Y RNA: a 99-nucleotide RNA sequence from Callithrix jacchus. By type it is a non-coding RNA gene. NCBI's taxonomy places the organism under Eukaryota, Metazoa, Gnathostomata, Amniota, Callithrix. Rfam 15.1 lists 26,986 matches to the family in 650 species. It scores 58 bits against the family's covariance model. The family's consensus secondary structure is taken from published work.

RNA sequence: GGCUGGCCCAAGUACAGAGGUGUUUACAACCAAUUGAUUACCAGUUACAGAUGUCUUUGUUCCUGCUCCACUCCCACUGUUUCAUUUGACUAGCCUUUU
Numbered sequence: 001g002g003c004u005g006g007c008c009c010a011a012g013u014a015c016a017g018a019g020g021u022g023u024u025u026a027c028a029a030c031c032a033a034u035u036g037a038u039u040a041c042c043a044g045u046u047a048c049a050g051a052u053g054u055c056u057u058u059g060u061u062c063c064u065g066c067u068c069c070a071c072u073c074c075c076a077c078u079g080u081u082u083c084a085u086u087u088g089a090c091u092a093g094c095c096u097u098u099u
Base pairs, nucleotide, nucleotide: 001095002094003093004092005091006090008088010087011086016078017077019075020074022073028061029060030059032057033056